The record is a 109-nucleotide sequence from Streptococcus pneumoniae, which matches "Streptococcus sRNA SpF39" in Rfam.
The base pairs follow the family's consensus structure, which was predicted with mfold.
By type it is a small RNA.
[Rfam]
RNA sequence: AAUUAGCAUACCAAUGAAUUUAAAGAUUCUUUAAAGAGUCUUAUUUUGUGAUGAAAAUUUAAUAUAAAUCUCAGACGAUAGAUAAAUUAAAAACUCUAUCCUUUUUUUU
Numbered sequence: 001a002a003u004u005a006g007c008a009u010a011c012c013a014a015u016g017a018a019u020u021u022a023a024a025g026a027u028u029c030u031u032u033a034a035a036g037a038g039u040c041u042u043a044u045u046u047u048g049u050g051a052u053g054a055a056a057a058u059u060u061a062a063u064a065u066a067a068a069u070c071u072c073a074g075a076c077g078a079u080a081g082a083u084a085a086a087u088u089a090a091a092a093a094c095u096c097u098a099u100c101c102u103u104u105u106u107u108u109u
Stems, first nucleotide, its partner, number of pairs: 004053002007050004016046004023042008073104003077100006
Dot-bracket structure: ...((.((((.....((((...((((((((....)))))))))))))))).))...................(((.((((((............)))))).))).....